A member of the RNA family "let-7 microRNA precursor family" from Callorhinchus milii, 85 nucleotides long.
[Rfam]
Nucleotides: 085
Stems, first nucleotide, its partner, number of pairs: 001085005008079014023064005032048004049056001
Number, partner (000 for none) and nucleotide at each position: 001085c002084u003083g004082g005081g006000u007000a008079g009078a010077g011076g012075u013074a014073g015072u016071a017070g018069g019068u020067u021066g022000c023064a024063u025062a026061g027060u028000u029000u030000g031000a032048g033047g034046g035045c036000a037000g038000g039000g040000a041000u042000u043000u044000u045035g046034c047033c048032c049056c050000a051000a052000a053000g054000g055000a056049g057000a058000u059000a060027a061026c062025u063024a064023u065000a066021c067020a068019a069018c070017c071016u072015g073014c074013u075012g076011c077010c078009u079008u080000u081005c082004c083003u084002g085001g

Background
For this family Rfam cites "Control of developmental timing in animals" (Rougvie, Nat Rev Genet, 2001). About the family: This family represents the microRNAs (miRNA) let-7 and mir-98. let-7 was identified from a study of developmental timing in C. elegans, and was later shown to be part of a much larger class of non-coding RNAs termed miRNAs. Its Rfam clan is "let-7 microRNA precursor clan".